[Rfam]
RNA sequence: UCCUCGGCGACGGGGAAUCUGAAGGAAGCUCGAGGCAAAUACUUGCACCGACGAACAGAAAUUUCAUACAAGGCCAUGUAGAAUGGAUGAGCUUGCAAAACAAAGCAAAGUCCAAUACUGCCCGGGUUCUGCAUGGUAAAUGAAGCGGUGACAUGAGUAGAAGGUCUGCACU
Numbered sequence: 001u002c003c004u005c006g007g008c009g010a011c012g013g014g015g016a017a018u019c020u021g022a023a024g025g026a027a028g029c030u031c032g033a034g035g036c037a038a039a040u041a042c043u044u045g046c047a048c049c050g051a052c053g054a055a056c057a058g059a060a061a062u063u064u065c066a067u068a069c070a071a072g073g074c075c076a077u078g079u080a081g082a083a084u085g086g087a088u089g090a091g092c093u094u095g096c097a098a099a100a101c102a103a104a105g106c107a108a109a110g111u112c113c114a115a116u117a118c119u120g121c122c123c124g125g126g127u128u129c130u131g132c133a134u135g136g137u138a139a140a141u142g143a144a145g146c147g148g149u150g151a152c153a154u155g156a157g158u159a160g161a162a163g164g165u166c167u168g169c170a171c172u
Base pairs, nucleotide, nucleotide: 001016002015003014004013005012006011028172030170035165036164040159041158042157043156044155045154046150047149048148049147050146062145063144064143065142066141067140073137074136075135077133078132079131080130081129082128083127085113086112087111088110091106092105093104094103

The family of this 172-nucleotide RNA sequence from Enterococcus cecorum is "Group II catalytic intron D1-D4-3". Pairs were carried over by alignment from the consensus structure. Taxonomically the source falls in Enterococcus cecorum (Bacteria, Bacillati, Bacilli, Enterococcus). Gene Ontology term of the family: Group II intron splicing.